Lysine riboswitch aptamer: a 181-nucleotide RNA sequence from Proteiniclasticum aestuarii. It scores 94 bits against the family's covariance model.

RNA sequence: GGGUGAGGUAGAGGAGCGGUAUUUAAGAACCAUGGAGAAGUAGAGGAAGCAGAGAUCCCAUGGCACAGGAACUAUCGCCGAAGUGUAAAGUGGCCUCACCGCUUUAUGCUGGGCUUGCAGUGAACAGCUGCAGGACUGUCCUUAUGGCUUACCCAGGUCAUAAGGUUGAGCUAUCUUAUCA
Number, nucleotide and partner (000 for none) at each position: 001g000002g000003g000004u000005g000006a176007g175008g174009u173010a172011g171012a000013g000014g000015a000016g078017c077018g076019g075020u074021a073022u000023u071024u070025a000026a000027g000028a000029a000030c063031c062032a061033u060034g059035g058036a000037g056038a000039a000040g000041u000042a000043g000044a000045g000046g000047a000048a000049g000050c000051a000052g000053a000054g000055a000056u037057c000058c035059c034060a033061u032062g031063g030064c000065a000066c000067a000068g000069g000070a024071a023072c000073u021074a020075u019076c018077g017078c016079c000080g000081a000082a110083g109084u108085g107086u106087a105088a104089a103090g102091u101092g100093g099094c000095c000096u000097c000098a000099c093100c092101g091102c090103u089104u088105u087106a086107u085108g084109c083110u082111g137112g136113g000114c134115u133116u132117g131118c130119a129120g128121u127122g000123a000124a000125c000126a000127g121128c120129u119130g118131c117132a116133g115134g114135a000136c112137u111138g000139u000140c165141c164142u163143u162144a161145u160146g159147g158148c157149u000150u000151a000152c000153c000154c000155a000156g000157g148158u147159c146160a145161u144162a143163a142164g141165g140166u000167u000168g000169a000170g000171c011172u010173a009174u008175c007176u006177u000178a000179u000180c000181a000